[Rfam]
RNA sequence: GGCUGGUCCAAGUGCAGUGGUGUUUACAACUAAUUGAUCACAACCAGGGACAGAUUGUUUGGUUCCCUCUCCACUCCCAUUUCACUUGACUAGCCUUAA
Numbered sequence: 001g002g003c004u005g006g007u008c009c010a011a012g013u014g015c016a017g018u019g020g021u022g023u024u025u026a027c028a029a030c031u032a033a034u035u036g037a038u039c040a041c042a043a044c045c046a047g048g049g050a051c052a053g054a055u056u057g058u059u060u061g062g063u064u065c066c067c068u069c070u071c072c073a074c075u076c077c078c079a080u081u082u083c084a085c086u087u088g089a090c091u092a093g094c095c096u097u098a099a
Stems, first nucleotide, its partner, number of pairs: 001095008010087002014083001016081005022076001028064003032060002

Y RNA: a 99-nucleotide sequence from Prolemur simus. NCBI's taxonomy places the organism under Eukaryota, Eumetazoa, Tetrapoda, Lemuridae, Prolemur. From the family's description: Y RNAs are components of the Ro ribonucleoprotein particle (Ro RNP), in association with Ro60 and La proteins. The Y RNAs and Ro60 and La proteins are well conserved, but the function of the Ro RNP is not known. In humans the RNA component can be one of four small RNAs -- hY1, hY3, hY4 and hY5. These small RNAs are predicted to fold into a conserved secondary structure containing three stem structures.